[Rfam]
RNA sequence: AGGGCUGCUAAAGUAGCUGCUGGACACUGCUCAAGAUUAAAAUAUAAACUAUAAUUAACUUGCACUAGCACGUGGAGCAAUACCACGUGUUCAGUGUUGGAAAAAAACUCUUGUGCGUGUGACAGCGGCUAUUGUGGUAGUGCCCUAAUACGAC
Dot-bracket structure: ....((((((.(..((((((((..((.(((.((.((........................................................................)).)).)))))...))))))))..).))))))..............

Annotation: The record is a 154-nucleotide RNA sequence from Cinara cedri, which matches "mir-210 microRNA precursor family" in Rfam. Rfam links the family to the GO terms miRNA-mediated post-transcriptional gene silencing and RISC complex. The source organism's lineage runs through Eukaryota, Altocrustacea, Allotriocarida, Hemiptera and Cinara. On this family, see Cai et al., Proc Natl Acad Sci U S A 2005: "Kaposi's sarcoma-associated herpesvirus expresses an array of viral microRNAs in latently infected cells".